The record is an 80-nucleotide RNA from Formosa agariphila, which matches "Flavo-1 RNA" in Rfam.
By type it is a small RNA.
The match comes from Rfam's covariance-model search (60 bits).
The family's consensus secondary structure is taken from published work.
Taxonomically the source falls in Formosa agariphila (Bacteria, Bacteroidota, Flavobacteriaceae, Formosa).
[Rfam]
RNA sequence: CAUUUGCGUUAGCGAUUGCAGUGGCAUCCUUUUAUGGUUUUUUUCGACCAUAAAAGAUAUAACGGAAAGCGCGCCCCAAA
Numbered sequence: 001c002a003u004u005u006g007c008g009u010u011a012g013c014g015a016u017u018g019c020a021g022u023g024g025c026a027u028c029c030u031u032u033u034a035u036g037g038u039u040u041u042u043u044u045c046g047a048c049c050a051u052a053a054a055a056g057a058u059a060u061a062a063c064g065g066a067a068a069g070c071g072c073g074c075c076c077c078a079a080a
Base pairs, nucleotide, nucleotide: 012072013071014070016068017067021063022062026058027057028056032053033052034051035050036049037048038047039046